Background: Plant signal recognition particle RNA: a 306-nucleotide RNA sequence from Eucalyptus grandis. The base pairs follow the family's consensus structure, which is taken from published work. Rfam classes the family as a non-coding RNA gene. The organism belongs to Eucalyptus, within Eukaryota. Rfam 15.1 lists 4,988 matches to the family in 266 species.
RNA sequence: GCCGAGCUCAGUAACGAGGGCUUGUGACCCGAGUGGGGGCAUCAAUGUGGUGGAACAUGGGCUCGGAUCUACUGGACCGGGUCUGAUGUGGCAAUUUGCUGGCCUGCCGGUUCCAAGCCGAGAGUUGAACCAUGCGGUCCGGGCGAAGGCCUGGGCAACGUGGGUCCUAGAGUGGAGGGGUCCGCGUCAGGCUGGCUUCACAGAGCAGCGAAGACCUCCCGCUCUCGACAGUGGAAGGAUAACGGGCUGGUGCUACCCAGGCCCACCACGGUCUAAUGGGCUGAGUCCUACUGAACCACCACUUUU
Numbered sequence: 001g002c003c004g005a006g007c008u009c010a011g012u013a014a015c016g017a018g019g020g021c022u023u024g025u026g027a028c029c030c031g032a033g034u035g036g037g038g039g040c041a042u043c044a045a046u047g048u049g050g051u052g053g054a055a056c057a058u059g060g061g062c063u064c065g066g067a068u069c070u071a072c073u074g075g076a077c078c079g080g081g082u083c084u085g086a087u088g089u090g091g092c093a094a095u096u097u098g099c100u101g102g103c104c105u106g107c108c109g110g111u112u113c114c115a116a117g118c119c120g121a122g123a124g125u126u127g128a129a130c131c132a133u134g135c136g137g138u139c140c141g142g143g144c145g146a147a148g149g150c151c152u153g154g155g156c157a158a159c160g161u162g163g164g165u166c167c168u169a170g171a172g173u174g175g176a177g178g179g180g181u182c183c184g185c186g187u188c189a190g191g192c193u194g195g196c197u198u199c200a201c202a203g204a205g206c207a208g209c210g211a212a213g214a215c216c217u218c219c220c221g222c223u224c225u226c227g228a229c230a231g232u233g234g235a236a237g238g239a240u241a242a243c244g245g246g247c248u249g250g251u252g253c254u255a256c257c258c259a260g261g262c263c264c265a266c267c268a269c270g271g272u273c274u275a276a277u278g279g280g281c282u283g284a285g286u287c288c289u290a291c292u293g294a295a296c297c298a299c300c301a302c303u304u305u306u
Stems, first nucleotide, its partner, number of pairs: 001040003004023006028037003044305002047302007056293002058290003063285001066282001069279003073275006079264007088256004094251001099250008108238001111236005117229001119227007127166002130163005137156008167172001174219005185210003192203003